[Rfam]
RNA sequence: GGCCUCAAGUGAUGCACAAAUGCCCGGGGAGGACUGUGACCCACUGGGAUGUAUUCGUACUGUCUGAUGGGGCC
Numbered sequence: 001g002g003c004c005u006c007a008a009g010u011g012a013u014g015c016a017c018a019a020a021u022g023c024c025c026g027g028g029g030a031g032g033a034c035u036g037u038g039a040c041c042c043a044c045u046g047g048g049a050u051g052u053a054u055u056c057g058u059a060c061u062g063u064c065u066g067a068u069g070g071g072g073c074c
Base pairs, nucleotide, nucleotide: 001074002073003072004071005070006069007068011064012063013062014061019055020054021053022052023051024048025047027045028044031042032041